[Rfam]
RNA sequence: GUAUUUGUUAUGAUGGUCCCAGCUUAAAGCGCUGGCGGCUGUGACCUGAUUCUAGAAAAU
Numbered sequence: 001g002u003a004u005u006u007g008u009u010a011u012g013a014u015g016g017u018c019c020c021a022g023c024u025u026a027a028a029g030c031g032c033u034g035g036c037g038g039c040u041g042u043g044a045c046c047u048g049a050u051u052c053u054a055g056a057a058a059a060u
Stems, first nucleotide, its partner, number of pairs: 001060002004057002015046004020041005029036002
The family of this 60-nucleotide sequence from Phainopepla nitens is "Selenocysteine insertion sequence 1". It is annotated as a cis-regulatory element. The family has 61 seed sequences and 3,793 matches in Rfam 15.1. Rfam describes the family as follows. The incorporation of selenocysteine into a protein sequence is directed by an in-frame UGA codon (usually a stop codon) within the coding region of the mRNA. Selenoprotein mRNAs contain a conserved secondary structure in the 3' UTR that is required for the distinction of UGA stop from UGA selenocysteine. The selenocysteine insertion sequence (SECIS) is around 60 nt in length and adopts a hairpin structure which is sufficiently well-defined and conserved to act as a computational screen for selenoprotein genes. Lineage of the source: Eukaryota > Bilateria > Coelurosauria > Bombycillidae > Phainopepla.